The record is an 87-nucleotide RNA from Nothophytophthora sp. Chile5, which matches "Selenocysteine transfer RNA" in Rfam. The family's consensus secondary structure is taken from published work. Clan: tRNA clan. The literature on the family includes a 2000 paper in FEBS Lett by Mizutani and Goto, "Eukaryotic selenocysteine tRNA has the 9/4 secondary structure". The source organism's lineage runs through Eukaryota, Sar, Oomycota, Peronosporaceae and Nothophytophthora.
RNA sequence: GCAGGGGUGAUCAUGGCUGGUGCUGUGUGCAGACUUCAAAUCUGUAGGCCAUUCAACGUGGCAGCGGUUCGAUUCCGCCUCGCUUGC
Numbered sequence: 001g002c003a004g005g006g007g008u009g010a011u012c013a014u015g016g017c018u019g020g021u022g023c024u025g026u027g028u029g030c031a032g033a034c035u036u037c038a039a040a041u042c043u044g045u046a047g048g049c050c051a052u053u054c055a056a057c058g059u060g061g062c063a064g065c066g067g068u069u070c071g072a073u074u075c076c077g078c079c080u081c082g083c084u085u086g087c
Stems, first nucleotide, its partner, number of pairs: 001087005007081001009079001012027006028046006048062005064078004